[Rfam]
RNA sequence: ACGCCGCCUUCCCCGCACAGGAAGGCGGACCGAGGAACCGGGCCUCUCUGCCCUGACUGCGCCUGGCUCCUCACCGGUCGGUCCGGGCCGCACACCCGAGGCCGAUUGCUGCUCCGGGCUGCGGUGCCGGGAGGGUUGAGGGUCCCUUCCUGCGC
Numbered sequence: 001a002c003g004c005c006g007c008c009u010u011c012c013c014c015g016c017a018c019a020g021g022a023a024g025g026c027g028g029a030c031c032g033a034g035g036a037a038c039c040g041g042g043c044c045u046c047u048c049u050g051c052c053c054u055g056a057c058u059g060c061g062c063c064u065g066g067c068u069c070c071u072c073a074c075c076g077g078u079c080g081g082u083c084c085g086g087g088c089c090g091c092a093c094a095c096c097c098g099a100g101g102c103c104g105a106u107u108g109c110u111g112c113u114c115c116g117g118g119c120u121g122c123g124g125u126g127c128c129g130g131g132a133g134g135g136u137u138g139a140g141g142g143u144c145c146c147u148u149c150c151u152g153c154g155c
Base pairs, nucleotide, nucleotide: 004028005027006026008024009023010022011021012020032072033071034070035069036068038066039065040064041063043061044059045056046055078105079104080103081102082101083100085097086096087095110126111125112124113123115121116120129150130149131148132147133146134145135144